[Rfam]
RNA sequence: CAAGGAAAGCGCCUGUAUUCCAAAUCUGUUUAAAAAAUGAGCAGACCUGACUGGACGUAGCGCGAUAGUGACCAAUACUUGAAUUGUCGGCGGGCAUAUCCCCCAAGUGUCGCGUCGAUAAGGGUGCCAAGGGACCGCGCGCCUUUGUUUUACUCCUAAUGGUCUUAACCCGGAUUCCCCCCCCAGAACCCGG
Numbered sequence: 001c002a003a004g005g006a007a008a009g010c011g012c013c014u015g016u017a018u019u020c021c022a023a024a025u026c027u028g029u030u031u032a033a034a035a036a037a038u039g040a041g042c043a044g045a046c047c048u049g050a051c052u053g054g055a056c057g058u059a060g061c062g063c064g065a066u067a068g069u070g071a072c073c074a075a076u077a078c079u080u081g082a083a084u085u086g087u088c089g090g091c092g093g094g095c096a097u098a099u100c101c102c103c104c105a106a107g108u109g110u111c112g113c114g115u116c117g118a119u120a121a122g123g124g125u126g127c128c129a130a131g132g133g134a135c136c137g138c139g140c141g142c143c144u145u146u147g148u149u150u151u152a153c154u155c156c157u158a159a160u161g162g163u164c165u166u167a168a169c170c171c172g173g174a175u176u177c178c179c180c181c182c183c184c185a186g187a188a189c190c191c192g193g
Base pairs, nucleotide, nucleotide: 039164040163042161043160086119087118088117089116091114092113093111095109096108097107120146121145122144123143124142125141126140127139128137170193171192172191173190175188176187177186
Shown here is a 193-nucleotide sequence from Pseudomonas asplenii, a member of the family "RgsA sRNA". Rfam links the family to the GO terms response to hydrogen peroxide, sRNA-mediated gene silencing and response to oxidative stress. From the family's description: This small RNA (sRNA) was computationally identified in the genome of the opportunistic pathogen Pseudomonas aeruginosa and its expression verified by northern blot analysis. P16 sRNA appears to be conserved across several Pseudomonas species and Azotobacter vinelandii. In these species it is consistently located downstream of a predicted TatD deoxyribonuclease gene. P16 has a predicted Rho independent terminator at the 3' end but the function of P16 is unknown. NCBI's taxonomy places the organism under Bacteria, Pseudomonadati, Pseudomonadales, Pseudomonadaceae, Pseudomonas. A search with the family's covariance model found it, with a score of 195 bits. The family's RNA type in Rfam is small RNA. The literature on the family includes a 2006 paper in Nucleic Acids Res by Livny et al., "Identification of 17 Pseudomonas aeruginosa sRNAs and prediction of sRNA-encoding genes in 10 diverse pathogens using the bioinformatic tool sRNAPredict2".